The family of this 144-nucleotide RNA sequence from Thalictrum thalictroides is "small nucleolar RNA snoR134". Lineage of the source: Eukaryota > Viridiplantae > Mesangiospermae > Thalictroideae > Thalictrum. The family's consensus secondary structure was predicted with RNAalifold. Rfam links the family to the GO terms RNA processing and nucleolus. The family's RNA type in Rfam is H/ACA-box small nucleolar RNA.
RNA sequence: AUGCAUGUUGCACCCCGGGCUUUUCUGAAAAAAUUACCAUGAAGAAAGAAGCCCCAAUGCUCGUGCUAAAUUGUGUCGUUCAGUGUUGCAGGUCAGCUUUGUUUUUUCCUACAGCUGAUCUGUGUCAAAGUAACGUCUACAUCU
Numbered sequence: 001a002u003g004c005a006u007g008u009u010g011c012a013c014c015c016c017g018g019g020c021u022u023u024u025c026u027g028a029a030a031a032a033a034u035u036a037c038c039a040u041g042a043a044g045a046a047a048g049a050a051g052c053c054c055c056a057a058u059g060c061u062c063g064u065g066c067u068a069a070a071u072u073g074u075g076u077c078g079u080u081c082a083g084u085g086u087u088g089c090a091g092g093u094c095a096g097c098u099u100u101g102u103u104u105u106u107u108c109c110u111a112c113a114g115c116u117g118a119u120c121u122g123u124g125u126c127a128a129a130g131u132a133a134c135g136u137c138u139a140c141a142u143c144u
Stems, first nucleotide, its partner, number of pairs: 003066005010060002017054005022048002024045003075137001077135004084127002087124006096115003